[Rfam]
About this RNA:
Shown here is a 184-nucleotide RNA, a member of the family "malK-I RNA". The family's consensus secondary structure is taken from published work. It is annotated as a cis-regulatory element. It is one of the family's seed sequences.

RNA sequence: CUUAGCCGGAGUGUACCAAUCCACACUUAUGGUGCCCUGCGGUCAAAAAAAGGAGGAUAAAACCAGUCCGGGUGACUCCCGGUGCGGCAUUGUGGAGACAUGUCGCAAUGCGUCCGCCAAGCCCGGCGGUCGUGAGAAUGCGCAUUGCGGAGGCAGCGCAGUCAGAGUCGGAAACACUAUGGCA
Numbered sequence: 001c002u003u004a005g006c007c008g009g010a011g012u013g014u015a016c017c018a019a020u021c022c023a024c025a026c027u028u029a030u031g032g033u034g035c036c037c038u039g040c041g042g043u044c045a046a047a048a049a050a051a052g053g054a055g056g057a058u059a060a061a062a063c064c065a066g067u068c069c070g071g072g073u074g075a076c077u078c079c080c081g082g083u084g085c086g087g088c089a090u091u092g093u094g095g096a097g098a099c100a101u102g103u104c105g106c107a108a109u110g111c112g113u114c115c116g117c118c119a120a121g122c123c124c125g126g127c128g129g130u131c132g133u134g135a136g137a138a139u140g141c142g143c144a145u146u147g148c149g150g151a152g153g154c155a156g157c158g159c160a161g162u163c164a165g166a167g168u169c170g171g172a173a174a175c176a177c178u179a180u181g182g183c184a
Base pairs, nucleotide, nucleotide: 006042007041008040010038011037013035014034015033016032017031018030068082069081070080071079073170074169075168076167077166078165083107084106085105086104087103088102089101090100092099093098110133111132112131114129115128116127117126118125136163137162139160140159141158142157143156146155147154148153